[Rfam]
Nucleotides: 081
Stems, first nucleotide, its partner, number of pairs: 009073003013069002018064002023058004029053010
Number, partner (000 for none) and nucleotide at each position: 001000u002000u003000g004000c005000g006000u007000u008000a009073a010072g011071g012000a013069u014068g015000g016000a017000a018064g019063u020000g021000g022000a023058a024057a025056u026055c027000c028000u029053u030052u031051u032050u033049a034048u035047u036046u037045u038044u039000u040000c041000u042000u043000u044038a045037a046036a047035a048034a049033u050032a051031a052030a053029a054000a055026g056025a057024u058023u059000g060000u061000g062000a063019a064018c065000g066000g067000a068014c069013a070000g071011c072010c073009u074000g075000c076000c077000c078000a079000u080000g081000c
The family of this 81-nucleotide sequence is "Flavo-1 RNA". Rfam 15.1 lists 7,497 matches to the family in 411 species. It is annotated as a small RNA.